[Rfam]
RNA sequence: UUACUCUUUCACAUAAUUUAUCACAUCAUUUUUAGCAGUACAAUAAGGUUUAAAAGUGAACAG
Numbered sequence: 001u002u003a004c005u006c007u008u009u010c011a012c013a014u015a016a017u018u019u020a021u022c023a024c025a026u027c028a029u030u031u032u033u034a035g036c037a038g039u040a041c042a043a044u045a046a047g048g049u050u051u052a053a054a055a056g057u058g059a060a061c062a063g
Stems, first nucleotide, its partner, number of pairs: 007043002011039002027058002030055005035049002
A member of the RNA family "Coronavirus 3' UTR pseudoknot" from Eudyptes chrysocome, 63 nucleotides long. For this family Rfam cites "A phylogenetically conserved hairpin-type 3' untranslated region pseudoknot functions in coronavirus RNA replication" (Williams et al., J Virol, 1999). Lineage of the source: Eukaryota > Opisthokonta > Bilateria > Neognathae > Eudyptes. Gene Ontology term of the family: viral genome replication. It is annotated as a cis-regulatory element. It scores 36 bits against the family's covariance model.